RNA sequence: CUCUUAUCCGGAGUGGUGGAGGGAUGUGCCCUAUGAAGCCCGGCAACCGUCUAGUAUAUAGAAAUGGUGCCAAUUCACAUAAAGUAAAAAUUUUACUUUUGAAGAUGAGAG
Numbered sequence: 001c002u003c004u005u006a007u008c009c010g011g012a013g014u015g016g017u018g019g020a021g022g023g024a025u026g027u028g029c030c031c032u033a034u035g036a037a038g039c040c041c042g043g044c045a046a047c048c049g050u051c052u053a054g055u056a057u058a059u060a061g062a063a064a065u066g067g068u069g070c071c072a073a074u075u076c077a078c079a080u081a082a083a084g085u086a087a088a089a090a091u092u093u094u095a096c097u098u099u100u101g102a103a104g105a106u107g108a109g110a111g
Stems, first nucleotide, its partner, number of pairs: 001111008013041001015040003021031003025079004042071004047067002050062003075103001081099007
The family of this 111-nucleotide RNA sequence from Staphylococcus sp. HGB0015 is "SAM riboswitch aptamer (S box leader)". A search with the family's covariance model found it, with a score of 84 bits.